The record is a 74-nucleotide RNA sequence from Dichelobacter nodosus, which matches "tRNA" in Rfam. Its Rfam clan is "tRNA clan". The base pairs follow the family's consensus structure, which is taken from published work. The source organism's lineage runs through Bacteria, Cardiobacteriales, Cardiobacteriaceae, Dichelobacter and Dichelobacter nodosus. By type it is a transfer RNA.
RNA sequence: CGGAGUAUAGCGCAGGCUGGUAGCGCAUUUGGUUUGGGACCAAAGGGUCGGGGGUUCGAAUCCCUCUACUCCGA
Numbered sequence: 001c002g003g004a005g006u007a008u009a010g011c012g013c014a015g016g017c018u019g020g021u022a023g024c025g026c027a028u029u030u031g032g033u034u035u036g037g038g039a040c041c042a043a044a045g046g047g048u049c050g051g052g053g054g055u056u057c058g059a060a061u062c063c064c065u066c067u068a069c070u071c072c073g074a
Stems, first nucleotide, its partner, number of pairs: 001073007010026004028044005050066005